[Rfam]
This 217-nucleotide RNA from Pseudomonas putida belongs to the Rfam family "Group II catalytic intron D1-D4-6". NCBI's taxonomy places the organism under Bacteria, Gammaproteobacteria, Pseudomonadales, Pseudomonadaceae, Pseudomonas. The sequence is in the family's curated seed alignment. The base pairs follow the family's consensus structure. Gene Ontology term of the family: Group II intron splicing.
RNA sequence: ACAGUUCGAUACUGGUAAUAAAUGGCGAAUCAACCAGACCCCGAGUCAUGCAUGUUGCGCCGUGAGGUUCAGGGUAAAGCGUUGACAGGGGAAACCGAUGGGCCAGCCAUGGAGCCGCGUAAUCACAAAUUCGGGAUGCCGAUGCUGUUAAGCGAAGCAGAAGGCUAUACGGAGCAUGACGAUACCCGAGGCAGGAGCCGUAUGCGGUAGUUCCGCA
Numbered sequence: 001a002c003a004g005u006u007c008g009a010u011a012c013u014g015g016u017a018a019u020a021a022a023u024g025g026c027g028a029a030u031c032a033a034c035c036a037g038a039c040c041c042c043g044a045g046u047c048a049u050g051c052a053u054g055u056u057g058c059g060c061c062g063u064g065a066g067g068u069u070c071a072g073g074g075u076a077a078a079g080c081g082u083u084g085a086c087a088g089g090g091g092a093a094a095c096c097g098a099u100g101g102g103c104c105a106g107c108c109a110u111g112g113a114g115c116c117g118c119g120u121a122a123u124c125a126c127a128a129a130u131u132c133g134g135g136a137u138g139c140c141g142a143u144g145c146u147g148u149u150a151a152g153c154g155a156a157g158c159a160g161a162a163g164g165c166u167a168u169a170c171g172g173a174g175c176a177u178g179a180c181g182a183u184a185c186c187c188g189a190g191g192c193a194g195g196a197g198c199c200g201u202a203u204g205c206g207g208u209a210g211u212u213c214c215g216c217a
Stems, first nucleotide, its partner, number of pairs: 012037005020030001023189001025187001039091004045086004049081002052075002055072003059068003111211001114208006138165003143159004170200003175195001177193002180190001